[Rfam]
RNA sequence: UAAAAUGAUAGAGGUGCGGAGCAGAAGAAGAGCUAAGUAGCCGGCGGGCUGUGACUUACUUGGAGGCAUCCUCCGCCGAACCGAAGCCGCAGGCGUGUUGUUUCGGUGGGCAUGCAGUCAAUAGCUGCAUGACUGUCUGCCGGGUCUGCCUGGCAGGGGCGCUAUUCUUACU
Numbered sequence: 001u002a003a004a005a006u007g008a009u010a011g012a013g014g015u016g017c018g019g020a021g022c023a024g025a026a027g028a029a030g031a032g033c034u035a036a037g038u039a040g041c042c043g044g045c046g047g048g049c050u051g052u053g054a055c056u057u058a059c060u061u062g063g064a065g066g067c068a069u070c071c072u073c074c075g076c077c078g079a080a081c082c083g084a085a086g087c088c089g090c091a092g093g094c095g096u097g098u099u100g101u102u103u104c105g106g107u108g109g110g111c112a113u114g115c116a117g118u119c120a121a122u123a124g125c126u127g128c129a130u131g132a133c134u135g136u137c138u139g140c141c142g143g144g145u146c147u148g149c150c151u152g153g154c155a156g157g158g159g160c161g162c163u164a165u166u167c168u169u170a171c172u
Base pairs, nucleotide, nucleotide: 007166008165009164010163011162016076017075018074019073020072021071024067034058035057036056037055080107081106082105083104084103085102086101087100089098090097091096108134109133111131112130113129114128115127116126117125118124136157137156138155139154140153141152142151
A member of the RNA family "Lysine riboswitch aptamer" from Lentihominibacter faecis, 172 nucleotides long. The organism belongs to Lentihominibacter, within Bacteria. Rfam describes the family as follows. Riboswitches are metabolite binding domains within certain messenger RNAs that serve as precision sensors for their corresponding targets.